The record is a 392-nucleotide sequence from Spirosomataceae bacterium TFI 002, which matches "Bacterial RNase P class A" in Rfam. Gene Ontology terms of the family: tRNA processing, dimeric ribonuclease P complex and ribonuclease P activity.
RNA sequence: GAAAUGGAUCGUCUUAUCGCUGCUAUUGAAAAAUAGGAGAGGAAAGUCCGAACAGCAUCGAGCAACAUGCUACCUAACGGGUAGGGGGUAAGCGGGUGACCAAUUAUCUACAGCUAGUGCAGCAGAAAGAAAACCGCCAUGUGAAUUCAUGGUAAGGGUGAAAGGGUGGGGUAAGAGCCCACCGUUUUUGUAGCGAUACAAAAGGCAAGGUAAACCUCAUGUGCUGAAAGACCACGUAAAUCUCAAUCUUUCGCUUGCUCAGCGAAAUUCUCUAGUAGAAUAUUGGGAAGGGUAGGUCGUUUGAAGUUUUGGGUGACCAAAACCCUAGAUAAAUGAUAAGAGUUGCCUUGUAAAAGGCAUGACAGAAUUCGGCUUAUAGAUCCAUUUCAUUU
Numbered sequence: 001g002a003a004a005u006g007g008a009u010c011g012u013c014u015u016a017u018c019g020c021u022g023c024u025a026u027u028g029a030a031a032a033a034u035a036g037g038a039g040a041g042g043a044a045a046g047u048c049c050g051a052a053c054a055g056c057a058u059c060g061a062g063c064a065a066c067a068u069g070c071u072a073c074c075u076a077a078c079g080g081g082u083a084g085g086g087g088g089u090a091a092g093c094g095g096g097u098g099a100c101c102a103a104u105u106a107u108c109u110a111c112a113g114c115u116a117g118u119g120c121a122g123c124a125g126a127a128a129g130a131a132a133a134c135c136g137c138c139a140u141g142u143g144a145a146u147u148c149a150u151g152g153u154a155a156g157g158g159u160g161a162a163a164g165g166g167u168g169g170g171g172u173a174a175g176a177g178c179c180c181a182c183c184g185u186u187u188u189u190g191u192a193g194c195g196a197u198a199c200a201a202a203a204g205g206c207a208a209g210g211u212a213a214a215c216c217u218c219a220u221g222u223g224c225u226g227a228a229a230g231a232c233c234a235c236g237u238a239a240a241u242c243u244c245a246a247u248c249u250u251u252c253g254c255u256u257g258c259u260c261a262g263c264g265a266a267a268u269u270c271u272c273u274a275g276u277a278g279a280a281u282a283u284u285g286g287g288a289a290g291g292g293u294a295g296g297u298c299g300u301u302u303g304a305a306g307u308u309u310u311g312g313g314u315g316a317c318c319a320a321a322a323c324c325c326u327a328g329a330u331a332a333a334u335g336a337u338a339a340g341a342g343u344u345g346c347c348u349u350g351u352a353a354a355a356g357g358c359a360u361g362a363c364a365g366a367a368u369u370c371g372g373c374u375u376a377u378a379g380a381u382c383c384a385u386u387u388c389a390u391u392u
Stems, first nucleotide, its partner, number of pairs: 001388010011377001012341007020039002023036005044375003048372005053226004060276001065222005070084005085111001086109006112217002117215002119211002134157002136153006165183006184206001185204008230298004241288005267281005306323007